[Rfam]
The family of this 173-nucleotide RNA sequence from Xiashengella succiniciproducens is "Group II catalytic intron D1-D4-3". NCBI's taxonomy places the organism under Bacteria, Pseudomonadati, Bacteroidia, Marinilabiliales, Xiashengella. It scores 112 bits against the family's covariance model. The base pairs follow the family's consensus structure.
RNA sequence: UUUGGAGUGAUCCAUGCAGUGAAGUAAGCGAGACUACAAAAAUCUGAACUGACGAACAGGAACGGAAUACGAGGCAUAAUUGUAUGGGUGAGUAACCACAUCAUUGCGAAGCCCAACGAACACCACAAGUACAGUUAUGUAGAUUCCGCAGGAUUAGAUGGAAGGACAUUUAC
Numbered sequence: 001u002u003u004g005g006a007g008u009g010a011u012c013c014a015u016g017c018a019g020u021g022a023a024g025u026a027a028g029c030g031a032g033a034c035u036a037c038a039a040a041a042a043u044c045u046g047a048a049c050u051g052a053c054g055a056a057c058a059g060g061a062a063c064g065g066a067a068u069a070c071g072a073g074g075c076a077u078a079a080u081u082g083u084a085u086g087g088g089u090g091a092g093u094a095a096c097c098a099c100a101u102c103a104u105u106g107c108g109a110a111g112c113c114c115a116a117c118g119a120a121c122a123c124c125a126c127a128a129g130u131a132c133a134g135u136u137a138u139g140u141a142g143a144u145u146c147c148g149c150a151g152g153a154u155u156a157g158a159u160g161g162a163a164g165g166a167c168a169u170u171u172a173c
Base pairs, nucleotide, nucleotide: 001016003014004013005012006011028173030171031170032169037165042159043158044157045156046155049151050150051149063148064147065146066145067144068143074140075139076138078136079135080134081133082132083131084130086114087113088112089111092107093106094105095104
Dot-bracket structure: (.((((....)))).)...........(.(((....(....(((((..(((...........((((((.....(((.(((((((.((((..((((........))))...))))...............))))))).)))..)))))))))...))))).....)...))).)